[Rfam]
RNA sequence: UAAGGAGUAGAACUUGUUGCGUUAAGUGCUAGUGGAACGGAAUGUGAACACUAGACGAAAGCAAUUGCUGCGGUAACAAGUUCGCAUUCGCCAAA
Dot-bracket structure: (..((....(((((((((((((...((.((((((.....[[[[[....))))))))...(((....)))))).)))))))))).]]]]].))..)
RNA: THF (Tetrahydrofolate) riboswitch aptamer
Organism: Lacticaseibacillus manihotivorans